[Rfam]
RNA sequence: GUGUUUUUCAUAGUAUUAGAUAUAAGAUUAAUUAAAGAGAUUGUACCAGCUUGUGAUAAGUAAGUACGUCAGAAACAGAGGCGUCUGUUUUAUUGAUAAAUGUGUUAAAGUGUCGGCUCUUUGCAGCCGACGCUUUUUUUAU
Number, nucleotide and partner (000 for none) at each position: 001g000002u000003g000004u000005u000006u000007u000008u000009c000010a000011u000012a000013g000014u000015a000016u000017u000018a000019g000020a000021u000022a000023u000024a000025a000026g000027a000028u000029u000030a000031a000032u000033u000034a000035a000036a000037g000038a000039g000040a000041u000042u000043g067044u066045a065046c064047c000048a000049g000050c060051u059052u058053g000054u000055g000056a000057u000058a052059a051060g050061u000062a000063a000064g046065u045066a044067c043068g000069u000070c000071a000072g000073a000074a089075a088076c087077a086078g085079a084080g000081g000082c000083g000084u079085c078086u077087g076088u075089u074090u000091u000092a000093u000094u000095g000096a000097u000098a000099a000100a000101u000102g000103u000104g000105u000106u000107a000108a135109a134110g133111u132112g131113u130114c129115g128116g127117c126118u125119c000120u000121u000122u000123g000124c000125a118126g117127c116128c115129g114130a113131c112132g111133c110134u109135u108136u000137u000138u000139u000140u000141a000142u000
This 142-nucleotide sequence from Bacteroides fragilis belongs to the Rfam family "GibS sRNA". A small RNA with a conserved region in the 5' region in gene clusters, related to carbon metabolism in Bacteroidetes. Lineage of the source: Bacteria > Pseudomonadati > Bacteroidales > Bacteroides > Bacteroides fragilis. Pairs were carried over by alignment from the consensus structure, which is taken from published work.